The record is a 122-nucleotide RNA from Cebus imitator, which matches "Small nucleolar RNA SNORA72" in Rfam. It scores 79 bits against the family's covariance model. Taxonomically the source falls in Cebus (Eukaryota, Craniata, Boreoeutheria, Euarchontoglires). About the family: U72 is a member of the H/ACA class of snoRNAs. The snoRNA gene is located in intron 4 of the ribosomal L30 protein gene in human, mouse and chicken.
RNA sequence: UUGUGAAUAUUCUCACUGUUUUGAUUUUAAGGACAGGCUAAACAUUCACUAUAUUAAGACCAUGCAUGUGUCUCAGACCUACCUCUUUUCCUAGGUCUGUUUUUUUUCCCCCUGUGGUUUUC
Numbered sequence: 001u002u003g004u005g006a007a008u009a010u011u012c013u014c015a016c017u018g019u020u021u022u023g024a025u026u027u028u029a030a031g032g033a034c035a036g037g038c039u040a041a042a043c044a045u046u047c048a049c050u051a052u053a054u055u056a057a058g059a060c061c062a063u064g065c066a067u068g069u070g071u072c073u074c075a076g077a078c079c080u081a082c083c084u085c086u087u088u089u090c091c092u093a094g095g096u097c098u099g100u101u102u103u104u105u106u107u108c109c110c111c112c113u114g115u116g117g118u119u120u121u122c
Stems, first nucleotide, its partner, number of pairs: 003049003016036007024028001059118004064112001074099008